The family of this 79-nucleotide RNA from Serratia symbiotica is "RybB RNA".
It is annotated as a small RNA.
From the family's description: This ncRNA was identified in a large scale screen of E. coli. The function of this short RNA is unknown. The exact 5' and 3' ends of this RNA are uncertain.
Lineage of the source: Bacteria > Pseudomonadota > Gammaproteobacteria > Serratia > Serratia symbiotica.
[Rfam]
RNA sequence: ACUGCCUUUUUUUGAUGUUCCCAAUUUGUGGAGCCCGAUAAUGUCGCCUUUUAGGUUUAAGAUUAUCGGUUUUUUAUUU
Numbered sequence: 001a002c003u004g005c006c007u008u009u010u011u012u013u014g015a016u017g018u019u020c021c022c023a024a025u026u027u028g029u030g031g032a033g034c035c036c037g038a039u040a041a042u043g044u045c046g047c048c049u050u051u052u053a054g055g056u057u058u059a060a061g062a063u064u065a066u067c068g069g070u071u072u073u074u075u076a077u078u079u
Stems, first nucleotide, its partner, number of pairs: 032072002035069008